[Rfam]
RNA sequence: UGGCUUGGUCGAAAGAUCUUGGGCCGCCGUAGACGGGGACAUCUCUC
Numbered sequence: 001u002g003g004c005u006u007g008g009u010c011g012a013a014a015g016a017u018c019u020u021g022g023g024c025c026g027c028c029g030u031a032g033a034c035g036g037g038g039a040c041a042u043c044u045c046u047c
Stems, first nucleotide, its partner, number of pairs: 001026006007018004